[Rfam]
RNA sequence: GGGGGCGUACUGGUUUCGACGGGGACGUAGAGGCCGGAAUAGCGGGCGGAUGCGCCUAACAUCCUUAAAAUGGGCAACUUAUAAAUUAAAGAACAACGAUAACGUCGUUCUCGCCGCUGCUUAAUUAGCGGCCGUCCCGCCCGGAAGGACCACGAGCCGGGAUGGGGCGUCGUUUAGUGGUGCCCGUGCGUGCGCAAAGCUUUGAGCGCACCAUGAAUCAUGAAGCUACCAAUCCUCUGAGUGUGACGGCUCACGCUGGGGUGCGGGAAUGCAAAUAACCGUCUGCGCCCGGAGAAGUUCUUGUUGAAGCGUUUUCGGACGGGGGUUCGACUCCCCCCGCCUCCACCA
Numbered sequence: 001g002g003g004g005g006c007g008u009a010c011u012g013g014u015u016u017c018g019a020c021g022g023g024g025a026c027g028u029a030g031a032g033g034c035c036g037g038a039a040u041a042g043c044g045g046g047c048g049g050a051u052g053c054g055c056c057u058a059a060c061a062u063c064c065u066u067a068a069a070a071u072g073g074g075c076a077a078c079u080u081a082u083a084a085a086u087u088a089a090a091g092a093a094c095a096a097c098g099a100u101a102a103c104g105u106c107g108u109u110c111u112c113g114c115c116g117c118u119g120c121u122u123a124a125u126u127a128g129c130g131g132c133c134g135u136c137c138c139g140c141c142c143g144g145a146a147g148g149a150c151c152a153c154g155a156g157c158c159g160g161g162a163u164g165g166g167g168c169g170u171c172g173u174u175u176a177g178u179g180g181u182g183c184c185c186g187u188g189c190g191u192g193c194g195c196a197a198a199g200c201u202u203u204g205a206g207c208g209c210a211c212c213a214u215g216a217a218u219c220a221u222g223a224a225g226c227u228a229c230c231a232a233u234c235c236u237c238u239g240a241g242u243g244u245g246a247c248g249g250c251u252c253a254c255g256c257u258g259g260g261g262u263g264c265g266g267g268a269a270u271g272c273a274a275a276u277a278a279c280c281g282u283c284u285g286c287g288c289c290c291g292g293a294g295a296a297g298u299u300c301u302u303g304u305u306g307a308a309g310c311g312u313u314u315u316c317g318g319a320c321g322g323g324g325g326u327u328c329g330a331c332u333c334c335c336c337c338c339g340c341c342u343c344c345a346c347c348a
Stems, first nucleotide, its partner, number of pairs: 001344007020317009032305003036301005043291005048064005054075005113132005133169006140161004149181005186211006193204001198227006229266002234261004241254003245283004321337005
Notes:
This 348-nucleotide RNA sequence from Flavonifractor sp. An135 belongs to the Rfam family "transfer-messenger RNA". For this family Rfam cites "Probing the structure of the Escherichia coli 10Sa RNA (tmRNA)" (Felden et al., RNA, 1997). Pairs were carried over by alignment from the consensus structure, which is taken from published work. Clan: tRNA clan. Lineage of the source: Bacteria > Bacillati > Clostridia > Oscillospiraceae > Flavonifractor. A search with the family's covariance model found it, with a score of 157 bits. Rfam classes the family as a non-coding RNA gene.